[Rfam]
RNA sequence: AAGCAACACUCUGUGACAGAUUAUCACAGGUCUGGCACAAUUUGAGCUUGCUACAGCAAGGAAGUCUACCCUAUUCCGGCACUCUCUCCUCUGUGAGACAGGCCGUCACAUAGACUUGAACAGU
Numbered sequence: 001a002a003g004c005a006a007c008a009c010u011c012u013g014u015g016a017c018a019g020a021u022u023a024u025c026a027c028a029g030g031u032c033u034g035g036c037a038c039a040a041u042u043u044g045a046g047c048u049u050g051c052u053a054c055a056g057c058a059a060g061g062a063a064g065u066c067u068a069c070c071c072u073a074u075u076c077c078g079g080c081a082c083u084c085u086c087u088c089c090u091c092u093g094u095g096a097g098a099c100a101g102g103c104c105g106u107c108a109c110a111u112a113g114a115c116u117u118g119a120a121c122a123g124u
Stems, first nucleotide, its partner, number of pairs: 009046003012039004017034006062117007072110001074108001077105004085098004
Small nucleolar RNA SNORA28: a 124-nucleotide sequence from Heterocephalus glaber. Rfam classes the family as an H/ACA-box small nucleolar RNA. The family is grouped with related families in Rfam's "SNORA28 clan". For this family Rfam cites "RNomics: an experimental approach that identifies 201 candidates for novel, small, non-messenger RNAs in mouse" (Huttenhofer et al., EMBO J, 2001). Pairs were carried over by alignment from the consensus structure, which was predicted with RNAfold. Lineage of the source: Eukaryota > Opisthokonta > Vertebrata > Hystricomorpha > Heterocephalus. ACA28 is a member of the H/ACA class of snoRNA that guide the sites of modification of uridines to pseudouridines.